[Rfam]
RNA sequence: AUAACUUAAUCGCUUAAUCUAACAAGAGCGGGGGAACCAAUAUGUAGCAGUGAGAUGCUACAAUGGGGUGAAUUCUUUUAUAAAAGAUAGGGCUACUCUUAUGCCCGAACCCGACAGCUAACCUCGUAAGCGUUAUGGGAGAGAGAU
Numbered sequence: 001a002u003a004a005c006u007u008a009a010u011c012g013c014u015u016a017a018u019c020u021a022a023c024a025a026g027a028g029c030g031g032g033g034g035a036a037c038c039a040a041u042a043u044g045u046a047g048c049a050g051u052g053a054g055a056u057g058c059u060a061c062a063a064u065g066g067g068g069u070g071a072a073u074u075c076u077u078u079u080a081u082a083a084a085a086g087a088u089a090g091g092g093c094u095a096c097u098c099u100u101a102u103g104c105c106c107g108a109a110c111c112c113g114a115c116a117g118c119u120a121a122c123c124u125c126g127u128a129a130g131c132g133u134u135a136u137g138g139g140a141g142a143g144a145g146a147u
Stems, first nucleotide, its partner, number of pairs: 011132004018027003028127006038065002066112003074087004090106004